RNA sequence: GACCGUCGUCCCAAUGGUAAUACCGCUUAGUACGAGAGGAACCGCGGUUUCAGAUAAUUGGUUUUUGCGGCUGUCCGACCGGGCAGUGCCGCGAAGCUACCAUCUGCUGGAUUAUGGCUGAACGCCUCUAAGUCAGAAUCCAUGCCAGAACGGGACGAUCCUCUCCAGCACGCCUUAGGCGGAUAAGAAUAGGCACUGCCAGUACCUGGGACCCCUUCAUCCCCCGCAAGACACGCGGGGGCGACGGGCGUAUCGUAAUUUUAUCGCGCGCUGGGAUGAAUCCCUUGCAUACGACUUGGACGUCCGACCGGGUCGUGUAAGCAGUCGAGUAGCCUUGUUGUUACGAGCUGCUGAGCGUAAGCCCGACGUCGGCUCGAUUUGU
Numbered sequence: 001g002a003c004c005g006u007c008g009u010c011c012c013a014a015u016g017g018u019a020a021u022a023c024c025g026c027u028u029a030g031u032a033c034g035a036g037a038g039g040a041a042c043c044g045c046g047g048u049u050u051c052a053g054a055u056a057a058u059u060g061g062u063u064u065u066u067g068c069g070g071c072u073g074u075c076c077g078a079c080c081g082g083g084c085a086g087u088g089c090c091g092c093g094a095a096g097c098u099a100c101c102a103u104c105u106g107c108u109g110g111a112u113u114a115u116g117g118c119u120g121a122a123c124g125c126c127u128c129u130a131a132g133u134c135a136g137a138a139u140c141c142a143u144g145c146c147a148g149a150a151c152g153g154g155a156c157g158a159u160c161c162u163c164u165c166c167a168g169c170a171c172g173c174c175u176u177a178g179g180c181g182g183a184u185a186a187g188a189a190u191a192g193g194c195a196c197u198g199c200c201a202g203u204a205c206c207u208g209g210g211a212c213c214c215c216u217u218c219a220u221c222c223c224c225c226g227c228a229a230g231a232c233a234c235g236c237g238g239g240g241g242c243g244a245c246g247g248g249c250g251u252a253u254c255g256u257a258a259u260u261u262u263a264u265c266g267c268g269c270g271c272u273g274g275g276a277u278g279a280a281u282c283c284c285u286u287g288c289a290u291a292c293g294a295c296u297u298g299g300a301c302g303u304c305c306g307a308c309c310g311g312g313u314c315g316u317g318u319a320a321g322c323a324g325u326c327g328a329g330u331a332g333c334c335u336u337g338u339u340g341u342u343a344c345g346a347g348c349u350g351c352u353g354a355g356c357g358u359a360a361g362c363c364c365g366a367c368g369u370c371g372g373c374u375c376g377a378u379u380u381g382u
Base pairs, nucleotide, nucleotide: 005159006158007157008156009155010154011153012152015147016146017145018144020050022048023047024046025045026044051106052105053104054103055102059099060098061097066093067092068091069090070089071086072085073084074083075082076081108142109141110140115135116134117133118132119131165274166273167272168271169270171268278380279379280378281377282376283299284298287295304372305371306370307369308368310364311363312362314357315356321351322350323349324348326347329344330343331342332341333340

The record is a 382-nucleotide part of an RNA from Zymoseptoria tritici, which matches "Eukaryotic large subunit ribosomal RNA" in Rfam. It scores 3420 bits against the family's covariance model. Pairs were carried over by alignment from the consensus structure, which is taken from published work. Its family is annotated with structural constituent of ribosome and ribosome in the Gene Ontology.